[Rfam]
Background:
The family of this 87-nucleotide RNA sequence from Albimonas pacifica is "tRNA". Transfer RNA (tRNA) molecules are approximately 80 nucleotides in length. NCBI's taxonomy places the organism under Bacteria, Pseudomonadota, Rhodobacterales, Paracoccaceae, Albimonas. The family's consensus secondary structure is taken from published work. Rfam links the family to the GO term triplet codon-amino acid adaptor activity. Rfam classes the family as a transfer RNA.
RNA sequence: GGAGAGGUGCCGGAGUGGUCGAUCGGGGCGGUCUCGAAAACCGUUGUAGGGGUGACUCUACCGUGGGUUCGAAUCCCACCCUCUCCG
Number, nucleotide and partner (000 for none) at each position: 001g086002g085003a084004g083005a082006g081007g080008u000009g000010c026011c025012g024013g023014a000015g000016u000017g000018g000019u000020c000021g000022a000023u013024c012025g011026g010027g000028g044029c043030g042031g041032u040033c000034u000035c000036g000037a000038a000039a000040a032041c031042c030043g029044u028045u000046g000047u000048a000049g000050g000051g000052g000053u000054g000055a000056c000057u000058c000059u000060a000061c000062c000063g079064u078065g077066g076067g075068u000069u000070c000071g000072a000073a000074u000075c067076c066077c065078a064079c063080c007081c006082u005083c004084u003085c002086c001087g000